[Rfam]
RNA sequence: GUCCCCCAGGACGAACGCCAGCUUAGCUCCCUAAGCAGGAAAGUCCCCGGUUUGACUCAGCAAGAAAUUGCACGAGUGGAAACACUUGGUGGGCAUAACGUCUGUUAGUGGCGAGGAUGUUCACUAAGAACUGAGCCGAAGAUGAGUAUGCCUUCAAGAACCCAGAUCAGAGAAUCACGGCGGAACUCUCUUCACAGAGGAGAACUGAAUGGGGCUUAUGUUCCUGGGGGC
Numbered sequence: 001g002u003c004c005c006c007c008a009g010g011a012c013g014a015a016c017g018c019c020a021g022c023u024u025a026g027c028u029c030c031c032u033a034a035g036c037a038g039g040a041a042a043g044u045c046c047c048c049g050g051u052u053u054g055a056c057u058c059a060g061c062a063a064g065a066a067a068u069u070g071c072a073c074g075a076g077u078g079g080a081a082a083c084a085c086u087u088g089g090u091g092g093g094c095a096u097a098a099c100g101u102c103u104g105u106u107a108g109u110g111g112c113g114a115g116g117a118u119g120u121u122c123a124c125u126a127a128g129a130a131c132u133g134a135g136c137c138g139a140a141g142a143u144g145a146g147u148a149u150g151c152c153u154u155c156a157a158g159a160a161c162c163c164a165g166a167u168c169a170g171a172g173a174a175u176c177a178c179g180g181c182g183g184a185a186c187u188c189u190c191u192u193c194a195c196a197g198a199g200g201a202g203a204a205c206u207g208a209a210u211g212g213g214g215c216u217u218a219u220g221u222u223c224c225u226g227g228g229g230g231c
Stems, first nucleotide, its partner, number of pairs: 003230009016182004022035005041217003045214004060071004072087001074085001076083002089155001091153007109138004119131004186202004191197001
Shown here is a 231-nucleotide sequence from Notodromas monacha, a member of the family "RNase MRP". Taxonomically the source falls in Notodromas (Eukaryota, Bilateria, Arthropoda, Oligostraca). Pairs were carried over by alignment from the consensus structure, which is taken from published work. The match comes from Rfam's covariance-model search (61 bits).